[Rfam]
RNA sequence: GUGUCUGCUGAUGCAGCAUCAUCAAGAUUCUCAUGUCAACAGGUAUGCAGUGCGAACCAGCGCAUAACUGAAGAUGAGUUUGAUGUGAAUCUUGAUGGUGCUGCACCUGCAAGCAC
Numbered sequence: 001g002u003g004u005c006u007g008c009u010g011a012u013g014c015a016g017c018a019u020c021a022u023c024a025a026g027a028u029u030c031u032c033a034u035g036u037c038a039a040c041a042g043g044u045a046u047g048c049a050g051u052g053c054g055a056a057c058c059a060g061c062g063c064a065u066a067a068c069u070g071a072a073g074a075u076g077a078g079u080u081u082g083a084u085g086u087g088a089a090u091c092u093u094g095a096u097g098g099u100g101c102u103g104c105a106c107c108u109g110c111a112a113g114c115a116c
Base pairs, nucleotide, nucleotide: 010107012105013104014103015102016101017100018099019098020097021096022095023094024093025092026091027090028089029088030087032085033084
Shown here is a 116-nucleotide RNA from Panicum hallii, a member of the family "mir-172 microRNA precursor family". The literature on the family includes a 2002 paper in Curr Biol by Park et al., "CARPEL FACTORY, a Dicer homolog, and HEN1, a novel protein, act in microRNA metabolism in Arabidopsis thaliana". Rfam links the family to the GO terms miRNA-mediated post-transcriptional gene silencing and RISC complex. About the family: mir-172 has been experimentally verified in Arabidopsis thaliana. This family is thought to target mRNAs coding for APETALA2-like transcription factors. The mature sequence is excised from the 3' arm of the hairpin. NCBI's taxonomy places the organism under Eukaryota, Embryophyta, Tracheophyta, Mesangiospermae, Panicum hallii. The family's consensus secondary structure was predicted with PFOLD.